[Rfam]
RNA sequence: GUUUCAAUAUAAGUAUGUUACAUGCAAUAUUUGGGAUAUACUUAUACUAAAA
Numbered sequence: 001g002u003u004u005c006a007a008u009a010u011a012a013g014u015a016u017g018u019u020a021c022a023u024g025c026a027a028u029a030u031u032u033g034g035g036a037u038a039u040a041c042u043u044a045u046a047c048u049a050a051a052a
Base pairs, nucleotide, nucleotide: 006048008046009045010044011043012042014040015039016038018036019035021033022031
Background:
Rfam assigns this 52-nucleotide RNA sequence from Odobenus rosmarus to the family "mir-1302 microRNA precursor family". Its family is annotated with miRNA-mediated post-transcriptional gene silencing and RISC complex in the Gene Ontology. The match comes from Rfam's covariance-model search (64 bits). A reference for the family is Morin et al. (2008), "Application of massively parallel sequencing to microRNA profiling and discovery in human embryonic stem cells", Genome Res.